[Rfam]
RNA sequence: UGUUCGGCUGAAAGGUCAAUAUCAGCUGGUAAUUCUGGGCUUUCCAAACCCGUUGUCGCUUCCCGGGAUUCCAACUGAUAUCCACUUUUUAGUCGAA
Numbered sequence: 001u002g003u004u005c006g007g008c009u010g011a012a013a014g015g016u017c018a019a020u021a022u023c024a025g026c027u028g029g030u031a032a033u034u035c036u037g038g039g040c041u042u043u044c045c046a047a048a049c050c051c052g053u054u055g056u057c058g059c060u061u062c063c064c065g066g067g068a069u070u071c072c073a074a075c076u077g078a079u080a081u082c083c084a085c086u087u088u089u090u091a092g093u094c095g096a097a
Stems, first nucleotide, its partner, number of pairs: 011089006019081007027073003032069008

Background:
mir-283 microRNA precursor family: a 97-nucleotide RNA sequence from Culex quinquefasciatus. Gene Ontology terms of the family: RISC complex and miRNA-mediated post-transcriptional gene silencing. Lineage of the source: Eukaryota > Opisthokonta > Protostomia > Culicoidea > Culex pipiens complex. The literature on the family includes a 2003 paper in Genome Biol by Lai et al., "Computational identification of Drosophila microRNA genes". Rfam's curators put it in the seed alignment. The family is grouped with related families in Rfam's "mir-216 clan".